[Rfam]
RNA: L31-Firmicutes ribosomal protein leader
RNA sequence: CUUUGGACGACAUUUACUGUCCAAGGCGGAAGGAG
Dot-bracket structure: ((((((((..........)))))))).........